A member of the RNA family "c-di-GMP-I riboswitch aptamer" from Alteromonas halophila, 93 nucleotides long. Rfam's curators write: GEMM was predicted in a large-scale screen for bacterial structured RNA regulatory elements. The organism belongs to Alteromonas, within Bacteria.

[Rfam]
RNA sequence: GAUAGAAAAAGGCAAAGCGGUACGAAAGGCCGUGACGCAAAGCUUCCGGUCUGUCACACAACGACCUUGUGUCAUGAUAGCGGGGUUACCGAA
Numbered sequence: 001g002a003u004a005g006a007a008a009a010a011g012g013c014a015a016a017g018c019g020g021u022a023c024g025a026a027a028g029g030c031c032g033u034g035a036c037g038c039a040a041a042g043c044u045u046c047c048g049g050u051c052u053g054u055c056a057c058a059c060a061a062c063g064a065c066c067u068u069g070u071g072u073c074a075u076g077a078u079a080g081c082g083g084g085g086u087u088a089c090c091g092a093a
Stems, first nucleotide, its partner, number of pairs: 012038002017033005023028001041087004046083003049078003056072006
Dot-bracket structure: ...........((...(((((.(....))))))...))..((((.((((((....((((((.....))))))...)))..)))))))......